[Rfam]
RNA sequence: GUAUGAAGGAAGCAUGGUAAGGUACACAGAGAUGAAGUGACGGGUCCUCAUGUCUGCCCGCUUGGAUGCUAUCAGGCUAUGAUCUAGCGGGUCUGGAUUCGACCCACAUUC
Numbered sequence: 001g002u003a004u005g006a007a008g009g010a011a012g013c014a015u016g017g018u019a020a021g022g023u024a025c026a027c028a029g030a031g032a033u034g035a036a037g038u039g040a041c042g043g044g045u046c047c048u049c050a051u052g053u054c055u056g057c058c059c060g061c062u063u064g065g066a067u068g069c070u071a072u073c074a075g076g077c078u079a080u081g082a083u084c085u086a087g088c089g090g091g092u093c094u095g096g097a098u099u100c101g102a103c104c105c106a107c108a109u110u111c
Base pairs, nucleotide, nucleotide: 012025014023015022042094043093044092045091046090052083053082054081056077057076058075

Rfam assigns this 111-nucleotide RNA from Colocasia esculenta to the family "Small nucleolar RNA snoR100". NCBI's taxonomy places the organism under Eukaryota, Viridiplantae, Tracheophyta, Aroideae, Colocasia. The base pairs follow the family's consensus structure, which was predicted with WAR. The family has 9 seed sequences and 1,851 matches in Rfam 15.1. The match comes from Rfam's covariance-model search (91 bits). Rfam classes the family as an H/ACA-box small nucleolar RNA.